[Rfam]
RNA sequence: CAAGUUUAAGGCUACAGAAAAAGUGCUCACAGCACAGCCUGUCAGAUUCCAACAAAAUCUGUGAAUUCUGCU
Numbered sequence: 001c002a003a004g005u006u007u008a009a010g011g012c013u014a015c016a017g018a019a020a021a022a023g024u025g026c027u028c029a030c031a032g033c034a035c036a037g038c039c040u041g042u043c044a045g046a047u048u049c050c051a052a053c054a055a056a057a058u059c060u061g062u063g064a065a066u067u068c069u070g071c072u
Stems, first nucleotide, its partner, number of pairs: 010039004016072002019069001021067002023035003043061006
Mammalian CPEB3 ribozyme: a 72-nucleotide sequence from Alligator sinensis. The organism belongs to Alligator, within Eukaryota. A search with the family's covariance model found it, with a score of 47 bits.